RNA sequence: AAUUUAAUAAAACCGAAUCGUAGGGAUACGAACGGAGGACCCAAUGUUGGGGUGAAUUUCCUUUCUUUUAGGAAUAGGGUGUCUCGACCCGAACCCGGCAGCUAACUUCGUAGGUGAAUCGAGAGGGUGU
Numbered sequence: 001a002a003u004u005u006a007a008u009a010a011a012a013c014c015g016a017a018u019c020g021u022a023g024g025g026a027u028a029c030g031a032a033c034g035g036a037g038g039a040c041c042c043a044a045u046g047u048u049g050g051g052g053u054g055a056a057u058u059u060c061c062u063u064u065c066u067u068u069u070a071g072g073a074a075u076a077g078g079g080u081g082u083c084u085c086g087a088c089c090c091g092a093a094c095c096c097g098g099c100a101g102c103u104a105a106c107u108u109c110g111u112a113g114g115u116g117a118a119u120c121g122a123g124a125g126g127g128u129g130u
Base pairs, nucleotide, nucleotide: 012115013114014113018031019030020029032111033110034109035108036107037106042049043048050096051095052094058074059073060072061071077090078089079088080087
RNA: c-di-AMP riboswitch aptamer (ydaO/yuaA leader)
Organism: Acidaminococcus intestini